[Rfam]
RNA sequence: GGCCAAGUAGUAGGGGCCACUGCAGAAGCAUUCACUUUGUGACCCCUGUCAGGUAAUACCUGCGAAUUCUGCC
Numbered sequence: 001g002g003c004c005a006a007g008u009a010g011u012a013g014g015g016g017c018c019a020c021u022g023c024a025g026a027a028g029c030a031u032u033c034a035c036u037u038u039g040u041g042a043c044c045c046c047u048g049u050c051a052g053g054u055a056a057u058a059c060c061u062g063c064g065a066a067u068u069c070u071g072c073c
Base pairs, nucleotide, nucleotide: 013046014045015044016043018041022072023071024070025069026068027067028040029039030038050062051061052060053059054058